RNA sequence: ACAUUUGGGCAACCGCUGACUGCCUGCAGUUAGAGGAAAGUCCAUGCUCGCACGUCCUGCGAUGGACGUAGUGUUUGUGCUGGCUGAAUCAAUAAGGCCAGGCAGAGAAAUCUGACGGCCGGUAAUUCGCCUAAGGGAAACUAUGGCGGAACCGUUAAUGUGCCACAGAGACGAGCGCUGAAGAAAUUCAGCGGAUGGAACGGGUAAACCCCACAAGCGAGAAACCCAAAUUUGGUAGGGGAAUCUGUGUGAAUGAACUGAAAGGAUCACAGGACAUAGCAAUAUGUAGAUAAAUGGUUGCCACUUCUUAGGAAGGACAGAACAUGGCUUACAAAA
Dot-bracket structure: ...(((((((((((.((((((......))))))....[[[.[[[[[(((((((((((......)))))).....(((((((((((..........))))))(((((....)))).)((.((((....((((...((....))..))))..)))).....(((((...........(((((((....))))))).........)))..))))))))))))))...(((..........)))...((((((..................))))))(((((....)))))........))))))).((((....)))).......]]]]]]]].).)))
Numbered sequence: 001a002c003a004u005u006u007g008g009g010c011a012a013c014c015g016c017u018g019a020c021u022g023c024c025u026g027c028a029g030u031u032a033g034a035g036g037a038a039a040g041u042c043c044a045u046g047c048u049c050g051c052a053c054g055u056c057c058u059g060c061g062a063u064g065g066a067c068g069u070a071g072u073g074u075u076u077g078u079g080c081u082g083g084c085u086g087a088a089u090c091a092a093u094a095a096g097g098c099c100a101g102g103c104a105g106a107g108a109a110a111u112c113u114g115a116c117g118g119c120c121g122g123u124a125a126u127u128c129g130c131c132u133a134a135g136g137g138a139a140a141c142u143a144u145g146g147c148g149g150a151a152c153c154g155u156u157a158a159u160g161u162g163c164c165a166c167a168g169a170g171a172c173g174a175g176c177g178c179u180g181a182a183g184a185a186a187u188u189c190a191g192c193g194g195a196u197g198g199a200a201c202g203g204g205u206a207a208a209c210c211c212c213a214c215a216a217g218c219g220a221g222a223a224a225c226c227c228a229a230a231u232u233u234g235g236u237a238g239g240g241g242a243a244u245c246u247g248u249g250u251g252a253a254u255g256a257a258c259u260g261a262a263a264g265g266a267u268c269a270c271a272g273g274a275c276a277u278a279g280c281a282a283u284a285u286g287u288a289g290a291u292a293a294a295u296g297g298u299u300g301c302c303a304c305u306u307c308u309u310a311g312g313a314a315g316g317a318c319a320g321a322a323c324a325u326g327g328c329u330u331a332c333a334a335a336a
Stems, first nucleotide, its partner, number of pairs: 004336003007332001008302007016033006038330003042327005047221005052069006075216005080101006102116001103114004117211002120154004128148004135142002160209002162205003176193007225240003244273006274287005304315004
Bacterial RNase P class B: a 336-nucleotide RNA from Dielma fastidiosa. The match comes from Rfam's covariance-model search (292 bits). On this family, see Frank and Pace, Annu Rev Biochem 1998: "Ribonuclease P: unity and diversity in a tRNA processing ribozyme". The family is grouped with related families in Rfam's "RNaseP clan". Rfam's curators write: Ribonuclease P (RNase P) is a ubiquitous endoribonuclease, found in archaea, bacteria and eukarya as well as chloroplasts and mitochondria. Pairs were carried over by alignment from the consensus structure, which is taken from published work. Taxonomically the source falls in Dielma (Bacteria, Bacillati, Bacillota, Erysipelotrichaceae).